[Rfam]
RNA sequence: AGAAGGUUGAGGGGGGCUGCUCCUAGUACGAGAGGACCGGAGUGGACGUACCGCUGGUUUUCCUGCUGUUCUUCCAAGGGCAUAUGCAGGGUAGCCAAGUACGGGAGAGAUAACCGCUGAAAGCAUCUAAGCGGGAAACUUGCCCCAAGAUGAGCCUUCUCACGGAGUCAAUCCGGUAAGGACCCCGGUAGAAUACCGGGUGGAUCGGCGGGAGGUGUACGCGCAGCGAUGCGUUGAGCCGACCCGUGCGAAUCGUCCGAGG
Numbered sequence: 001a002g003a004a005g006g007u008u009g010a011g012g013g014g015g016g017c018u019g020c021u022c023c024u025a026g027u028a029c030g031a032g033a034g035g036a037c038c039g040g041a042g043u044g045g046a047c048g049u050a051c052c053g054c055u056g057g058u059u060u061u062c063c064u065g066c067u068g069u070u071c072u073u074c075c076a077a078g079g080g081c082a083u084a085u086g087c088a089g090g091g092u093a094g095c096c097a098a099g100u101a102c103g104g105g106a107g108a109g110a111u112a113a114c115c116g117c118u119g120a121a122a123g124c125a126u127c128u129a130a131g132c133g134g135g136a137a138a139c140u141u142g143c144c145c146c147a148a149g150a151u152g153a154g155c156c157u158u159c160u161c162a163c164g165g166a167g168u169c170a171a172u173c174c175g176g177u178a179a180g181g182a183c184c185c186c187g188g189u190a191g192a193a194u195a196c197c198g199g200g201u202g203g204a205u206c207g208g209c210g211g212g213a214g215g216u217g218u219a220c221g222c223g224c225a226g227c228g229a230u231g232c233g234u235u236g237a238g239c240c241g242a243c244c245c246g247u248g249c250g251a252a253u254c255g256u257c258c259g260a261g262g
Stems, first nucleotide, its partner, number of pairs: 001160008011146004017045007047103005055097003062090005067082006107141003114134005163175003177260001180258004184200005205251003208247005214240002221234005